Rfam assigns this 117-nucleotide RNA from Xylanimonas cellulosilytica to the family "SAM (S-adenosyl methionine) riboswitch aptamer". From the family's description: SAM-IV is a mRNA element that regulates gene expression via direct sensing of S-adenosylmethionine (SAM or AdoMet). SAM-IV riboswitches share conserved nucleotide positions with the previously described SAM-I riboswitches sequence analysis and molecular recognition experiments suggest that SAM-I and SAM-IV riboswitches share similar ligand binding sites, but have different scaffolds. The match comes from Rfam's covariance-model search (51 bits). The family's consensus secondary structure is taken from published work. The source organism's lineage runs through Bacteria, Actinomycetes, Promicromonosporaceae, Xylanimonas and Xylanimonas cellulosilytica.

[Rfam]
RNA sequence: GGUCAAGAGCUCAGCCCGCACGCCUCCGGACGUGGGCUGACGGCAACCGCGUCCCGACACGGUGCCCUCCGGAGAAGACCCGGGCCGGCGUCACCUCGACGCCGUCAAGACGGUCAC
Numbered sequence: 001g002g003u004c005a006a007g008a009g010c011u012c013a014g015c016c017c018g019c020a021c022g023c024c025u026c027c028g029g030a031c032g033u034g035g036g037c038u039g040a041c042g043g044c045a046a047c048c049g050c051g052u053c054c055c056g057a058c059a060c061g062g063u064g065c066c067c068u069c070c071g072g073a074g075a076a077g078a079c080c081c082g083g084g085c086c087g088g089c090g091u092c093a094c095c096u097c098g099a100c101g102c103c104g105u106c107a108a109g110a111c112g113g114u115c116a117c
Base pairs, nucleotide, nucleotide: 001080002079003078004077009041011040012039013038014037015036016035021032022031042066043065044064047062048061049060052056083106084105085104087103088102089101090100091099092098